[Rfam]
RNA sequence: CCCGGAGUGCCACCGGCUUUAACAGAGACUUGUGGCAGUGUGGUUUGUAAAUUCAGCAAUCCACCGGUAGCGUAAUGAAUCGUGAAGACCCCCGUUGAUAAGGAAUAAGGGCAGGUCACGUUGCUAUUGGUUAUCUAUACCAGUCUGCUUGGUUGCCCGGAGCUAUAAAAAAGUCUCCUUCAACGAAGCAUUCAUCUCCAGUGAUUGCUCUAAGC
Number, nucleotide and partner (000 for none) at each position: 001c043002c042003c000004g000005g000006a000007g000008u037009g036010c035011c034012a033013c032014c000015g030016g029017c000018u000019u000020u000021a000022a000023c000024a000025g000026a000027g000028a000029c016030u015031u000032g013033u012034g011035g010036c009037a008038g000039u000040g000041u000042g002043g001044u000045u000046u000047g000048u000049a000050a000051a000052u000053u000054c000055a209056g208057c207058a206059a205060u204061c203062c000063a131064c130065c129066g128067g127068u126069a125070g124071c000072g000073u000074a000075a000076u000077g000078a000079a000080u000081c120082g119083u118084g117085a116086a000087g000088a000089c111090c110091c000092c000093c000094g000095u000096u000097g000098a000099u000100a000101a000102g000103g000104a000105a000106u000107a000108a000109g000110g090111g089112c000113a000114g000115g000116u085117c084118a083119c082120g081121u000122u000123g000124c070125u069126a068127u067128u066129g065130g064131u063132u000133a000134u000135c000136u000137a000138u000139a000140c000141c000142a000143g000144u000145c000146u190147g189148c188149u187150u186151g000152g184153u183154u182155g181156c000157c000158c000159g000160g177161a176162g175163c000164u000165a000166u000167a000168a000169a000170a000171a000172a000173g000174u000175c162176u161177c160178c000179u000180u000181c155182a154183a153184c152185g000186a150187a149188g148189c147190a146191u000192u000193c000194a000195u000196c000197u000198c000199c000200a000201g000202u000203g061204a060205u059206u058207g057208c056209u055210c000211u000212a000213a000214g000215c000

Shown here is a 215-nucleotide sequence, a member of the family "RT-7 RNA". The sequence is in the family's curated seed alignment. The family's consensus secondary structure is taken from published work.